[Rfam]
RNA sequence: AGGCUGCAAUAAACAUUCAUUGCUGUCGGUGGGUUUACGUCAAACAACUCACUGGUCAAUGAAUGCAGACUGCGGUUCA
Number, nucleotide and partner (000 for none) at each position: 001a000002g078003g077004c075005u074006g073007c072008a071009a000010u000011a000012a000013a000014c065015a064016u063017u062018c061019a060020u059021u058022g057023c000024u000025g056026u055027c054028g053029g052030u051031g050032g000033g048034u047035u046036u000037a000038c000039g000040u000041c000042a000043a000044a000045c000046a035047a034048c033049u000050c031051a030052c029053u028054g027055g026056u025057c022058a021059a020060u019061g018062a017063a016064u015065g014066c000067a000068g000069a000070c000071u008072g007073c006074g005075g004076u000077u003078c002079a000

Shown here is a 79-nucleotide RNA sequence from Liparis tanakae, a member of the family "mir-181 microRNA precursor family". On this family, see Lagos-Quintana et al., RNA 2003: "New microRNAs from mouse and human". NCBI's taxonomy places the organism under Eukaryota, Eumetazoa, Osteoglossocephalai, Eupercaria, Liparis. It scores 65 bits against the family's covariance model.